Rfam assigns this 99-nucleotide RNA from Lactonifactor longoviformis to the family "SAM riboswitch aptamer (S box leader)". On this family, see Montange et al., J Mol Biol 2010: "Discrimination between closely related cellular metabolites by the SAM-I riboswitch". It scores 71 bits against the family's covariance model. Gene Ontology term of the family: regulation of gene expression.

[Rfam]
Nucleotides: 099
Base pairs, nucleotide, nucleotide: 001099002098003097004096005095006094007093008092013044014043015042016041017040021033022032023031030074045069046068047067048066050065051064052061053060078088079087080086081085
Number, partner (000 for none) and nucleotide at each position: 001099c002098u003097c004096u005095u006094a007093u008092u009000c010000a011000g012000a013044g014043u015042g016041a017040u018000g019000g020000a021033g022032a023031u024000a025000c026000a027000a028000a029000g030074g031023a032022u033021c034000u035000g036000u037000g038000a039000a040017g041016u042015c043014a044013c045069g046068g047067c048066a049000a050065c051064c052061c053060c054000c055000g056000c057000a058000g059000c060053g061052g062000a063000a064051g065050g066048u067047g068046c069045c070000a071000a072000c073000c074030u075000g076000a077000g078088c079087g080086a081085g082000u083000a084000a085081u086080u087079c088078g089000a090000a091000c092008a093007a094006u095005a096004a097003g098002a099001g